This 112-nucleotide RNA sequence from Olea europaea belongs to the Rfam family "mir-399 microRNA precursor family".
RNA sequence: GGAUGCAUUACUGGGCAAUUACUCCACUGGCAGUGGGCUACUUUACUGCUAUAUAGGGCCUGGCUGUAUUAUUUAGCUCACUGCCAAGGGAGAUUUGCCUGGCAAUUCACCC
Dot-bracket structure: ....(.(((.((((((((...((((..(((((((((.........................................)))))))))..))))..)))))))).))).)....
Numbered sequence: 001g002g003a004u005g006c007a008u009u010a011c012u013g014g015g016c017a018a019u020u021a022c023u024c025c026a027c028u029g030g031c032a033g034u035g036g037g038c039u040a041c042u043u044u045a046c047u048g049c050u051a052u053a054u055a056g057g058g059c060c061u062g063g064c065u066g067u068a069u070u071a072u073u074u075a076g077c078u079c080a081c082u083g084c085c086a087a088g089g090g091a092g093a094u095u096u097g098c099c100u101g102g103c104a105a106u107u108c109a110c111c112c
Stems, first nucleotide, its partner, number of pairs: 005108001007106003011102008022092004028086009
Rfam describes the family as follows. mir-399 was identified in both Arabidopsis thaliana and Oryza sativa computationally and was later experimentally verified. mir-399 is thought to target mRNAs coding for a phosphatase transporter.